[Rfam]
RNA sequence: CUCCAUGACGCGGGGUGCUUCACGUCACCACACGGAAGCUGAGAAGAUACCCGUUGAACCUGAUCCAGCUCGUACUGGCGAAGGGACGUCUCACCGGUUGCAC
Numbered sequence: 001c002u003c004c005a006u007g008a009c010g011c012g013g014g015g016u017g018c019u020u021c022a023c024g025u026c027a028c029c030a031c032a033c034g035g036a037a038g039c040u041g042a043g044a045a046g047a048u049a050c051c052c053g054u055u056g057a058a059c060c061u062g063a064u065c066c067a068g069c070u071c072g073u074a075c076u077g078g079c080g081a082a083g084g085g086a087c088g089u090c091u092c093a094c095c096g097g098u099u100g101c102a103c
Base pairs, nucleotide, nucleotide: 007090008089009088010087011053012052013051014050016047017039018038019037020036021035059084060083061082065078066077067076068075
RNA: TPP riboswitch aptamer (THI element)
Organism: Auritidibacter sp. NML120636